[Rfam]
RNA sequence: AAGACUAUACUUUCAGGGAUCAUUUCUAUAGUUUAUAACUUGGAAAGUUGUUCUGAAAGUGUUACGUCUCUCUAUCCACGAUGACGAGUCGAGAUAUUUCUUUCUGAGCGUGAAUCUGAUGGAGAGUGAUGAGUAAAAUCAUCUGUUCUUUAUCAUUGAUGAACGCUCCUGCUGUGUUUCACAGUCUGGAGGAAGAAAGUAUGAACUGAGUGGU
Numbered sequence: 001a002a003g004a005c006u007a008u009a010c011u012u013u014c015a016g017g018g019a020u021c022a023u024u025u026c027u028a029u030a031g032u033u034u035a036u037a038a039c040u041u042g043g044a045a046a047g048u049u050g051u052u053c054u055g056a057a058a059g060u061g062u063u064a065c066g067u068c069u070c071u072c073u074a075u076c077c078a079c080g081a082u083g084a085c086g087a088g089u090c091g092a093g094a095u096a097u098u099u100c101u102u103u104c105u106g107a108g109c110g111u112g113a114a115u116c117u118g119a120u121g122g123a124g125a126g127u128g129a130u131g132a133g134u135a136a137a138a139u140c141a142u143c144u145g146u147u148c149u150u151u152a153u154c155a156u157u158g159a160u161g162a163a164c165g166c167u168c169c170u171g172c173u174g175u176g177u178u179u180c181a182c183a184g185u186c187u188g189g190a191g192g193a194a195g196a197a198a199g200u201a202u203g204a205a206c207u208g209a210g211u212g213g214u
Stems, first nucleotide, its partner, number of pairs: 001041003006035002009032003015027004049064002054061001076213004094202006101195005108166003118154004124148004128143005169188001171185006
The family of this 214-nucleotide sequence from Astyanax mexicanus is "Small nucleolar RNA U3". Clan: U3 clan. Rfam 15.1 lists 19,072 matches to the family in 1,215 species. It is annotated as a C/D-box small nucleolar RNA. Pairs were carried over by alignment from the consensus structure, which is taken from published work. Small nucleolar RNAs (snoRNAs) are involved in the processing and modification of rRNA in the nucleolus. There are two main classes of snoRNAs: the box C/D class, and the box H/ACA class. U3 snoRNA is a member of the box C/D class. Indeed, the box C/D element is a subset of the six short sequence elements found in all U3 snoRNAs, namely boxes A, A', B, C, C', and D. The U3 snoRNA secondary structure is characterised by a small 5' domain (with boxes A and A'), and a larger 3' domain (with boxes B, C, C', and D), the two domains being linked by a single-stranded hinge. A reference for the family is Zwieb (1997), "The uRNA database", Nucleic Acids Res.